Shown here is a 278-nucleotide sequence from Chiloscyllium punctatum, a member of the family "Nuclear RNase P". NCBI's taxonomy places the organism under Eukaryota, Metazoa, Craniata, Gnathostomata, Chiloscyllium. Rfam's curators write: Ribonuclease P (RNase P) is a ubiquitous endoribonuclease, found in archaea, bacteria and eukarya as well as chloroplasts and mitochondria. For this family Rfam cites "Ribonuclease P: unity and diversity in a tRNA processing ribozyme" (Frank and Pace, Annu Rev Biochem, 1998). By type it is a ribozyme. The family's consensus secondary structure is taken from published work. The family has 116 seed sequences and 3,848 matches in Rfam 15.1.

[Rfam]
RNA sequence: UGUGGUGGGAAGUCCACAGUAGAGGUCACAUCCAGAGUGUUCAUCACUCCCCUGCCAAUAGCUUGGGGAAUGUCUAAGAUAAGAGCCAAUCACCACCCUUGCAGGGUGUUACCUGAUGCAGGUGAGGAAGUUACCAGGCAGUAACAGAGAGCAGGAGAAGUAGGCCCAGCACUGUGGAUGCAGUUACUGCCUGGAAUGGGAAAGGCUGCUGGGUGAGCUUAAUGUGUGGGAUGAGGUAAGGAAUCUCACAACCCAAUUCAGACUACUCUCCUACCAAA
Dot-bracket structure: (.((...(((..((((((...(((..........(((((.....)))))............))).........[[.[[.....(.((......(((((.....)))))((((((.....))))))((.((((............(................................................).........)))).)))).)..........)))))).((((((.....))))))........]].]].......)))...)).)